Rfam assigns this 141-nucleotide sequence from Methylobrevis albus to the family "Alphaproteobacterial sRNA BjrC1505".
On this family, see Madhugiri et al., RNA Biol 2012: "Small RNAs of the Bradyrhizobium/Rhodopseudomonas lineage and their analysis".
The organism belongs to Methylobrevis, within Bacteria.
Pairs were carried over by alignment from the consensus structure.
Rfam classes the family as a small RNA.
RNA sequence: ACGCCGCGUUUACCGUUCGUUAAGCUUUCUAAUCUAUUACUUUGCUUGUCCAGCCUUCUGGAUCUGCGAGUGGCUCCCGUCACUCCUUUUGACGCCUCCCUGUCGACUUGCAGAGCCGCGCUUCGUCGCGGCUCUCUUUUC
Numbered sequence: 001a002c003g004c005c006g007c008g009u010u011u012a013c014c015g016u017u018c019g020u021u022a023a024g025c026u027u028u029c030u031a032a033u034c035u036a037u038u039a040c041u042u043u044g045c046u047u048g049u050c051c052a053g054c055c056u057u058c059u060g061g062a063u064c065u066g067c068g069a070g071u072g073g074c075u076c077c078c079g080u081c082a083c084u085c086c087u088u089u090u091g092a093c094g095c096c097u098c099c100c101u102g103u104c105g106a107c108u109u110g111c112a113g114a115g116c117c118g119c120g121c122u123u124c125g126u127c128g129c130g131g132c133u134c135u136c137u138u139u140u141c
Stems, first nucleotide, its partner, number of pairs: 002044002005015002021036002024033001026031001049062004068085005091104004112135009